A member of the RNA family "Bacterial RNase P class A" from Candidatus Rickettsiella isopodorum, 469 nucleotides long. The organism belongs to Rickettsiella, within Bacteria. The family's consensus secondary structure is taken from published work. Ribonuclease P (RNase P) is a ubiquitous endoribonuclease, found in archaea, bacteria and eukarya as well as chloroplasts and mitochondria. Its best characterised activity is the generation of mature 5'-ends of tRNAs by cleaving the 5'-leader elements of precursor-tRNAs. Its family is annotated with ribonuclease P activity, dimeric ribonuclease P complex and tRNA processing in the Gene Ontology.
[Rfam]
RNA sequence: AGAGUUGGCUAGACAGUCGCUGUAGUUUCUACAGAGGAAAGUCCGGGCUCCAUCGGGCAAAGUGCCAGGUAAUGCCUGGGAGGUGUAAGCCUACGGAAAGUGCCACAGAAAAUAUACCGCCUUAGUGAAAUUAUAUACUCACAGCAAUUGGAUGUUUGGCAAGUGCCGCGUUCGUGCAGUCAACAUGUAUAUCCAAAAUACAUGAGCAUUGCGAGUUGAGCGGCAACACAGCCAAAAACUCAAGUGUGAAGAGUAUAGACUGGGUAAGGGUGAAAAGGUGUGGUAAAAGCGCACCGCAUCAUUGGUAACAGUGAUGGCAGGGCAAACCCCACUUGGAGCAAGACCAAAUAGGAACCUUUUAGGCGUGGCCCACGCUAGGUUCGGGUAGGUCGCUUGAGAUGUAUGGUGACGUAUAUCCUAGAUGAAUGACUGUCCACGACAGAACCCGGCUUAUCGGCUAACUCUCUUU
Dot-bracket structure: ((((((((((((((((((.((((((...))))))....[[[.[[[[[((((...[[[[.((((((((((.....)))))(((((....)))).)((...(((((............(((((.((((....................................................................................................................................)))))))..)).......((((((.......))))))(((((((((....)))))))).)..)))..)))))))))))))...((((......((((((....(((((.]]]]))))))))))).....))))......((((((((....))))))))..........)))))))..........]]]]]]]].).))))))))))....